[Rfam]
RNA sequence: GUGCGCCGACGCCGUCUACGCCGGCGCGCUGUCUGCUGGGAGCCCGCCCGCACGGCACGGGGCGGCAGAGACGGGAGGA
Numbered sequence: 001g002u003g004c005g006c007c008g009a010c011g012c013c014g015u016c017u018a019c020g021c022c023g024g025c026g027c028g029c030u031g032u033c034u035g036c037u038g039g040g041a042g043c044c045c046g047c048c049c050g051c052a053c054g055g056c057a058c059g060g061g062g063c064g065g066c067a068g069a070g071a072c073g074g075g076a077g078g079a
Stems, first nucleotide, its partner, number of pairs: 001029007008021001010020002031072004036068002044065006
This 79-nucleotide RNA sequence from Olsenella uli belongs to the Rfam family "aspS RNA". It is one of the family's seed sequences. Rfam classes the family as a cis-regulatory element. The source organism's lineage runs through Bacteria, Actinomycetota, Coriobacteriales, Olsenella and Olsenella uli.